[Rfam]
ZMP/ZTP riboswitch aptamer (pfl RNA motif): a 78-nucleotide RNA from Paenibacillus thalictri.
RNA sequence: CAAACGGUGCGUGACUGGCGGAACAUGGGUUACCAUGAGGAAGCGCACCGAUAUGAGCCGUACGCCUGGGCGAGUGUU
Numbered sequence: 001c002a003a004a005c006g007g008u009g010c011g012u013g014a015c016u017g018g019c020g021g022a023a024c025a026u027g028g029g030u031u032a033c034c035a036u037g038a039g040g041a042a043g044c045g046c047a048c049c050g051a052u053a054u055g056a057g058c059c060g061u062a063c064g065c066c067u068g069g070g071c072g073a074g075u076g077u078u
Stems, first nucleotide, its partner, number of pairs: 003052001005050008015040002017066004025036004057071003
NCBI's taxonomy places the organism under Bacteria, Bacillota, Bacilli, Caryophanales, Paenibacillus. A search with the family's covariance model found it, with a score of 58 bits.